[Rfam]
RNA sequence: CUGGAGGAUGAAAUGUGUGGCACUGAGUGUAUUUGACAAGCUGAGUCCGACACUCAGUGAGACAGAGUGUCAGUUUGUCAAAUACCCCAAGUGAGGCACAGUCUCUC
Numbered sequence: 001c002u003g004g005a006g007g008a009u010g011a012a013a014u015g016u017g018u019g020g021c022a023c024u025g026a027g028u029g030u031a032u033u034u035g036a037c038a039a040g041c042u043g044a045g046u047c048c049g050a051c052a053c054u055c056a057g058u059g060a061g062a063c064a065g066a067g068u069g070u071c072a073g074u075u076u077g078u079c080a081a082a083u084a085c086c087c088c089a090a091g092u093g094a095g096g097c098a099c100a101g102u103c104u105c106u107c
Base pairs, nucleotide, nucleotide: 021093022092023091024090027087029085030084031083032082033081034080035079036078037077038076039075040074041073042072049071050070051069052068054066055065
This 107-nucleotide RNA sequence from Xenopus laevis belongs to the Rfam family "mir-223 microRNA precursor family".
Lineage of the source: Eukaryota > Chordata > Craniata > Dipnotetrapodomorpha > Xenopus.
For this family Rfam cites "Vertebrate microRNA genes" (Lim et al., Science, 2003).
The family's consensus secondary structure was predicted with RNAalifold.
It scores 97 bits against the family's covariance model.